Description
The record is a 159-nucleotide sequence from Sphaerisporangium rubeum, which matches "c-di-AMP riboswitch aptamer (ydaO/yuaA leader)" in Rfam. The match comes from Rfam's covariance-model search (86 bits). NCBI's taxonomy places the organism under Bacteria, Actinomycetota, Actinomycetes, Streptosporangiaceae, Sphaerisporangium.
[Rfam]
RNA sequence: CUCGCUGACCAGCCGAAUCCGUGCGGCAAGGAGCACGGAACCGGGGACCCAAUAGACCCUUUCGCGAGGGUCAGGGGUGAAUCAGUGGUUUUGCCACUGUAGGGCGACUUCCAAGCCCGAAUCCGUCAGCUAACCCGGUAGGCGUAAGUGGAAGAACCU
Numbered sequence: 001c002u003c004g005c006u007g008a009c010c011a012g013c014c015g016a017a018u019c020c021g022u023g024c025g026g027c028a029a030g031g032a033g034c035a036c037g038g039a040a041c042c043g044g045g046g047a048c049c050c051a052a053u054a055g056a057c058c059c060u061u062u063c064g065c066g067a068g069g070g071u072c073a074g075g076g077g078u079g080a081a082u083c084a085g086u087g088g089u090u091u092u093g094c095c096a097c098u099g100u101a102g103g104g105c106g107a108c109u110u111c112c113a114a115g116c117c118c119g120a121a122u123c124c125g126u127c128a129g130c131u132a133a134c135c136c137g138g139u140a141g142g143c144g145u146a147a148g149u150g151g152a153a154g155a156a157c158c159u
Base pairs, nucleotide, nucleotide: 012143013142014141018039019038020037021036022035023034024033040139041138042137043136044135045134050074075124076123077122083099084098085097086096102118103117104116105115